[Rfam]
This 156-nucleotide RNA sequence from Gossypium anomalum belongs to the Rfam family "MIR530 microRNA precursor family". The family has 3 seed sequences and 119 matches in Rfam 15.1. Lineage of the source: Eukaryota > Embryophyta > Magnoliopsida > malvids > Gossypium. Pairs were carried over by alignment from the consensus structure, which was predicted with WAR. It scores 88 bits against the family's covariance model. Its family is annotated with RISC complex and miRNA-mediated post-transcriptional gene silencing in the Gene Ontology.
RNA sequence: GCUAAGAUGUAGCUUUUAUCUGCAUUUGCACCUGCAUCUUAUUGUUUGUUUCAGCUAUGUCAGAAAAACAAAACACUGUUAGAUAUGUUUUGUGUGGUGUGGUUGGAGACCAAACAAAGAGGUGCAGAUGCAGUUGCAGAUGAAUGCCAUUUUAGC
Dot-bracket structure: (((((((((..((.((((((((((.(((((.((((((((.........(((((....))..))).......................................................)))))))).))))).)))))))))).)))))))))))
Numbered sequence: 001g002c003u004a005a006g007a008u009g010u011a012g013c014u015u016u017u018a019u020c021u022g023c024a025u026u027u028g029c030a031c032c033u034g035c036a037u038c039u040u041a042u043u044g045u046u047u048g049u050u051u052c053a054g055c056u057a058u059g060u061c062a063g064a065a066a067a068a069c070a071a072a073a074c075a076c077u078g079u080u081a082g083a084u085a086u087g088u089u090u091u092g093u094g095u096g097g098u099g100u101g102g103u104u105g106g107a108g109a110c111c112a113a114a115c116a117a118a119g120a121g122g123u124g125c126a127g128a129u130g131c132a133g134u135u136g137c138a139g140a141u142g143a144a145u146g147c148c149a150u151u152u153u154a155g156c
Stems, first nucleotide, its partner, number of pairs: 001156009012147002015144010026133005032127008049064003052059002